[Rfam]
RNA sequence: UUCUAGAACUUCAACCGGCACUGAUAUAUCAGUGCCGGUUAAAUAUUUAUAAUUUUAUAAAUAUUUAUAAUUUACCGGCACUGGUAUAAUUUUUAUACCAGUGCUGGUUGAAUAUUUAUAACC
Numbered sequence: 001u002u003c004u005a006g007a008a009c010u011u012c013a014a015c016c017g018g019c020a021c022u023g024a025u026a027u028a029u030c031a032g033u034g035c036c037g038g039u040u041a042a043a044u045a046u047u048u049a050u051a052a053u054u055u056u057a058u059a060a061a062u063a064u065u066u067a068u069a070a071u072u073u074a075c076c077g078g079c080a081c082u083g084g085u086a087u088a089a090u091u092u093u094u095a096u097a098c099c100a101g102u103g104c105u106g107g108u109u110g111a112a113u114a115u116u117u118a119u120a121a122c123c
Base pairs, nucleotide, nucleotide: 004049005048016037017036018035019034020033021032022031023030024029060116061115062114063113065112066111075107076106077105078104079103080102081101082100083099084098085097086096087095088094089093
RNA: Small nucleolar RNA SNORA72